[Rfam]
RNA sequence: AAACAGGUUAUGAUGAGGACAACAAUCUUCCGGACGGGAUUACAGAGAGGGAAGCCGAAUGGCUGCAAGCUUCCUAUCAGCAAGGAUGAAUUGACCACCUCUGAACUUCGAUUGCGAACGGGGAUGUCCCAAGUAGUCAUCGACGGCUAAACGUCGUUAUCAAAACAAUGAAGUCAUUCCCGUGAUGGGGAUGAAAAGUUGGGUGGAACCGCGAGUGCAACCUCGUCCCUUCG
Numbered sequence: 001a002a003a004c005a006g007g008u009u010a011u012g013a014u015g016a017g018g019a020c021a022a023c024a025a026u027c028u029u030c031c032g033g034a035c036g037g038g039a040u041u042a043c044a045g046a047g048a049g050g051g052a053a054g055c056c057g058a059a060u061g062g063c064u065g066c067a068a069g070c071u072u073c074c075u076a077u078c079a080g081c082a083a084g085g086a087u088g089a090a091u092u093g094a095c096c097a098c099c100u101c102u103g104a105a106c107u108u109c110g111a112u113u114g115c116g117a118a119c120g121g122g123g124a125u126g127u128c129c130c131a132a133g134u135a136g137u138c139a140u141c142g143a144c145g146g147c148u149a150a151a152c153g154u155c156g157u158u159a160u161c162a163a164a165a166c167a168a169u170g171a172a173g174u175c176a177u178u179c180c181c182g183u184g185a186u187g188g189g190g191a192u193g194a195a196a197a198g199u200u201g202g203g204u205g206g207a208a209c210c211g212c213g214a215g216u217g218c219a220a221c222c223u224c225g226u227c228c229c230u231u232c233g
Stems, first nucleotide, its partner, number of pairs: 007106002015101004025087005038078003050074006109142004114137002144156003174194007201229003211226005

Notes
This 233-nucleotide RNA sequence from Rossellomorea marisflavi belongs to the Rfam family "T-box leader". The family's consensus secondary structure is taken from published work. Rfam describes the family as follows. Uncharged tRNA acts as the effector for transcription antitermination of genes in the T-box leader family. T-boxes are found upstream of many aminoacyl-tRNA synthetase genes and some amino acid biosynthetic genes usually in Gram-positive bacteria.